[Rfam]
A member of the RNA family "Sense overlapping transcript RNA 2652 (sot)" from Halarchaeum rubridurum, 190 nucleotides long. On this family, see Gomes-Filho et al., RNA Biol 2015: "Sense overlapping transcripts in IS1341-type transposase genes are functional non-coding RNAs in archaea". A search with the family's covariance model found it, with a score of 176 bits. NCBI's taxonomy places the organism under Archaea, Methanobacteriati, Halobacteriales, Halobacteriaceae, Halarchaeum. Rfam's curators write: It is associated with IS1341-type transposase (tnpB) genes, at the 3'-end in H. salinarum NRC-1. The tetraloop structural motif may be functional. The base pairs follow the family's consensus structure, which was predicted with RNAfold. The family's RNA type in Rfam is small RNA.
RNA sequence: AUUACCGGACUCACAAAACCCAGCCGCAGGUCAGGUUGGUGCGUCUGUCCGGGUCGGGGCGUGUAAGCCGCCCAACCUCAUCCCGUUCCCUUGCGGAACAGGGAGUGCUAGCGCACGGCUGAGGGAAUUACAAAAGCCUCGGGCCACCGCGCCCCAGGCUGUUUACCCCCGCUCAAUCGCGACCGACGCG
Numbered sequence: 001a002u003u004a005c006c007g008g009a010c011u012c013a014c015a016a017a018a019c020c021c022a023g024c025c026g027c028a029g030g031u032c033a034g035g036u037u038g039g040u041g042c043g044u045c046u047g048u049c050c051g052g053g054u055c056g057g058g059g060c061g062u063g064u065a066a067g068c069c070g071c072c073c074a075a076c077c078u079c080a081u082c083c084c085g086u087u088c089c090c091u092u093g094c095g096g097a098a099c100a101g102g103g104a105g106u107g108c109u110a111g112c113g114c115a116c117g118g119c120u121g122a123g124g125g126a127a128u129u130a131c132a133a134a135a136g137c138c139u140c141g142g143g144c145c146a147c148c149g150c151g152c153c154c155c156a157g158g159c160u161g162u163u164u165a166c167c168c169c170c171g172c173u174c175a176a177u178c179g180c181g182a183c184c185g186a187c188g189c190g
Stems, first nucleotide, its partner, number of pairs: 005052006013044002020039006053076002057073005062067001084190002087186002091182005096174002099171001102169002105166003109121004135160005141154004
Dot-bracket structure: ....((((((..((.....((((((........))))))...))..))))))((..((((((....).))))).)).......((.((..(((((((.(..((.(((.((((.....)))).............(((((.((((......)))).)))))...))).)).).))...)))))..))..))